Shown here is an 87-nucleotide RNA sequence from Nitrosomonas cryotolerans, a member of the family "Burkholderia RNA 7 (anti-hemB)". Gene Ontology terms of the family: bacterial biofilm matrix and protein binding. This RNA motif was identified by computational search in b-proteobacteria Burkholderia. Co-purified with Hfq, expression confirmed by Northern blot. It is annotated as a small RNA. Pairs were carried over by alignment from the consensus structure, which is taken from published work. Taxonomically the source falls in Nitrosomonas cryotolerans (Bacteria, Pseudomonadota, Nitrosomonadaceae, Nitrosomonas). A search with the family's covariance model found it, with a score of 53 bits. The literature on the family includes a 2017 paper in Sci Rep by Sass et al., "Identification of small RNAs abundant in Burkholderia cenocepacia biofilms reveal putative regulators with a potential role in carbon and iron metabolism".

RNA sequence: UCCCGUCUUUCUCCCUGAGGUGGGGCCUUGAGUGAUAUUAAGGUGGUUCCCCCCGGUUUUAUUCCCCUUUAACCGGGGUUUUUUUAU
Numbered sequence: 001u002c003c004c005g006u007c008u009u010u011c012u013c014c015c016u017g018a019g020g021u022g023g024g025g026c027c028u029u030g031a032g033u034g035a036u037a038u039u040a041a042g043g044u045g046g047u048u049c050c051c052c053c054c055g056g057u058u059u060u061a062u063u064c065c066c067c068u069u070u071a072a073c074c075g076g077g078g079u080u081u082u083u084u085u086a087u
Base pairs, nucleotide, nucleotide: 003023004022005021006020007019008018025044026043027042028041029040030039031038051078052077053076054075055074056073057072058071